[Rfam]
RNA sequence: AAGCAAAUGAUGUAAAAAUUACUAUUUAGAUAAUAAUGAGGUAAGUAAGGAACCACUGAUGCUC
Numbered sequence: 001a002a003g004c005a006a007a008u009g010a011u012g013u014a015a016a017a018a019u020u021a022c023u024a025u026u027u028a029g030a031u032a033a034u035a036a037u038g039a040g041g042u043a044a045g046u047a048a049g050g051a052a053c054c055a056c057u058g059a060u061g062c063u064c
Stems, first nucleotide, its partner, number of pairs: 002063004

Annotation
Shown here is a 64-nucleotide RNA sequence from Pteropus alecto, a member of the family "Small nucleolar RNA SNORD42". Lineage of the source: Eukaryota > Chordata > Laurasiatheria > Pteropodoidea > Pteropus. Its family is annotated with nucleolus and RNA processing in the Gene Ontology. snoRNA U42 is found in intron 3 of the ribosomal protein L23a (RPL23a) gene in humans and is also present in mice. A reference for the family is Galardi et al. (2002), "Purified box C/D snoRNPs are able to reproduce site-specific 2'-O-methylation of target RNA in vitro", Mol Cell Biol.